[Rfam]
RNA sequence: GACAGGAGCUAGAAUUCUGCCUGUGUUCUGGUGUAGUGUGUGGGACACCACAACACAGACAGAAUUCUAGCUCCUGUC
Numbered sequence: 001g002a003c004a005g006g007a008g009c010u011a012g013a014a015u016u017c018u019g020c021c022u023g024u025g026u027u028c029u030g031g032u033g034u035a036g037u038g039u040g041u042g043g044g045a046c047a048c049c050a051c052a053a054c055a056c057a058g059a060c061a062g063a064a065u066u067c068u069a070g071c072u073c074c075u076g077u078c
Base pairs, nucleotide, nucleotide: 004075005074006073009070010069011068012067013066014065015064016063017062021058022057023056024055025054026053031051032050033049
RNA: mir-11 microRNA precursor family
Organism: Pogona vitticeps